[Rfam]
RNA sequence: GCUGUUGAUGAUUCGAUCCAACUUAUUUGAGGUGUUGUGGAUCCAAGCCCUUGCUCUGCAGGGGGAACCUACUUGAGGAAGCAACGUUUCAUAGGAAAUUAAUGGAUUUGACUGAGGC
Numbered sequence: 001g002c003u004g005u006u007g008a009u010g011a012u013u014c015g016a017u018c019c020a021a022c023u024u025a026u027u028u029g030a031g032g033u034g035u036u037g038u039g040g041a042u043c044c045a046a047g048c049c050c051u052u053g054c055u056c057u058g059c060a061g062g063g064g065g066a067a068c069c070u071a072c073u074u075g076a077g078g079a080a081g082c083a084a085c086g087u088u089u090c091a092u093a094g095g096a097a098a099u100u101a102a103u104g105g106a107u108u109u110g111a112c113u114g115a116g117g118c
Stems, first nucleotide, its partner, number of pairs: 001118003049063005

The record is a 118-nucleotide sequence from Carpinus fangiana, which matches "Small nucleolar RNA Z278" in Rfam. Lineage of the source: Eukaryota > Euphyllophyta > Gunneridae > Pentapetalae > Carpinus. The match comes from Rfam's covariance-model search (41 bits). Rfam classes the family as a C/D-box small nucleolar RNA. The base pairs follow the family's consensus structure, which was predicted with PFOLD. snoZ278 is a C/D box small nucleolar RNA. Its methylation guide targets have not been reported.